[Rfam]
RNA sequence: CGAGUCGGCCGGGUGGACGCGGGCAACGCAACCGGAAAGCAUGUGUUUUUCCAGGGCGGUGCCCGAGGAAAGUCCGGACUCCGAACAGCACGGUGAUUGCUAACGGCAACCCAGGGUGACCUGAGGGACAAGUGCCACAGAAAACAGACCGCCACAGGGUUUUACCUGCGGUAAGGGUGAAAAGGUGCGGUAAGAGCGCACCAGCGCGCCGGGUGACCGGCGCGGCUGGGUAAACCCCACCGGGAGCAAGGUAAAAGCGUGCACCACCGGUGUGCGUGCGCACAUGUUCGGGCUGCUUGUUCUUCGGGAGACUUCUCAUGUCUCCCGGCAUGUGCGGGUUUGCUGCUUGAGGCCCCCGGCAACGGGUGGUCCAGAUGGAUGUUCACCACCACGGUGUCCGGUAACGGAUCCGUGGGACAGAAUCCGGCUUACAGGCCGUCUCGUUUC
Numbered sequence: 001c002g003a004g005u006c007g008g009c010c011g012g013g014u015g016g017a018c019g020c021g022g023g024c025a026a027c028g029c030a031a032c033c034g035g036a037a038a039g040c041a042u043g044u045g046u047u048u049u050u051c052c053a054g055g056g057c058g059g060u061g062c063c064c065g066a067g068g069a070a071a072g073u074c075c076g077g078a079c080u081c082c083g084a085a086c087a088g089c090a091c092g093g094u095g096a097u098u099g100c101u102a103a104c105g106g107c108a109a110c111c112c113a114g115g116g117u118g119a120c121c122u123g124a125g126g127g128a129c130a131a132g133u134g135c136c137a138c139a140g141a142a143a144a145c146a147g148a149c150c151g152c153c154a155c156a157g158g159g160u161u162u163u164a165c166c167u168g169c170g171g172u173a174a175g176g177g178u179g180a181a182a183a184g185g186u187g188c189g190g191u192a193a194g195a196g197c198g199c200a201c202c203a204g205c206g207c208g209c210c211g212g213g214u215g216a217c218c219g220g221c222g223c224g225g226c227u228g229g230g231u232a233a234a235c236c237c238c239a240c241c242g243g244g245a246g247c248a249a250g251g252u253a254a255a256a257g258c259g260u261g262c263a264c265c266a267c268c269g270g271u272g273u274g275c276g277u278g279c280g281c282a283c284a285u286g287u288u289c290g291g292g293c294u295g296c297u298u299g300u301u302c303u304u305c306g307g308g309a310g311a312c313u314u315c316u317c318a319u320g321u322c323u324c325c326c327g328g329c330a331u332g333u334g335c336g337g338g339u340u341u342g343c344u345g346c347u348u349g350a351g352g353c354c355c356c357c358g359g360c361a362a363c364g365g366g367u368g369g370u371c372c373a374g375a376u377g378g379a380u381g382u383u384c385a386c387c388a389c390c391a392c393g394g395u396g397u398c399c400g401g402u403a404a405c406g407g408a409u410c411c412g413u414g415g416g417a418c419a420g421a422a423u424c425c426g427g428c429u430u431a432c433a434g435g436c437c438g439u440c441u442c443g444u445u446u447c
Base pairs, nucleotide, nucleotide: 001443002442003441004440006438007437008436009435010434011432012387013386014385015384016383017382018381020065021064022063023062024061025060027058028057070430071429072428074427075426076425077424078423079246080245081244082243091242092241093240094239095238097109098108099107100106111125112123113122114121115120126237127236132235133234134231135230136229149176150175151172152171153170155168156167157166158165184202185201186200187199188198189197204226205224206223207222208221209220210219211218212217250344251343252342253341254340255339351370353368355366356365357364358363

A member of the RNA family "Bacterial RNase P class A" from Corynebacterium mendelii, 447 nucleotides long.